Background:
A member of the RNA family "mir-2796 microRNA precursor family" from Leptidea sinapis, 74 nucleotides long. Lineage of the source: Eukaryota > Protostomia > Altocrustacea > Dismorphiinae > Leptidea. Rfam 15.1 lists 119 matches to the family in 116 species. Rfam links the family to the GO terms RISC complex and miRNA-mediated post-transcriptional gene silencing.
RNA sequence: GACGAUGGGCAGGGGUUUCUUUCGGCCUUCAGCUGUGGAGACUGUAGGCCGGCGGAAACUACUUGCUCACGUCA
Numbered sequence: 001g002a003c004g005a006u007g008g009g010c011a012g013g014g015g016u017u018u019c020u021u022u023c024g025g026c027c028u029u030c031a032g033c034u035g036u037g038g039a040g041a042c043u044g045u046a047g048g049c050c051g052g053c054g055g056a057a058a059c060u061a062c063u064u065g066c067u068c069a070c071g072u073c074a
Stems, first nucleotide, its partner, number of pairs: 006069003010065004014060007022052007030044003